[Rfam]
RNA sequence: GAAUGAAAUGACAGACAAGUUCGUAUAUCCUCAAUAAUAUGGUUUGAGGGUUUCUACAAGGAGCCAAAGAAUCCUGACUACGAAUAUGGGAUACGUGUAU
Numbered sequence: 001g002a003a004u005g006a007a008a009u010g011a012c013a014g015a016c017a018a019g020u021u022c023g024u025a026u027a028u029c030c031u032c033a034a035u036a037a038u039a040u041g042g043u044u045u046g047a048g049g050g051u052u053u054c055u056a057c058a059a060g061g062a063g064c065c066a067a068a069g070a071a072u073c074c075u076g077a078c079u080a081c082g083a084a085u086a087u088g089g090g091a092u093a094c095g096u097g098u099a100u
Base pairs, nucleotide, nucleotide: 019085020084021083022082023081024080025079029049030048031047032046033045034044059075060074061073062072
Source information
Purine riboswitch aptamer: a 100-nucleotide sequence from Paenibacillus validus. Taxonomically the source falls in Paenibacillus (Bacteria, Bacillati, Bacillota, Caryophanales).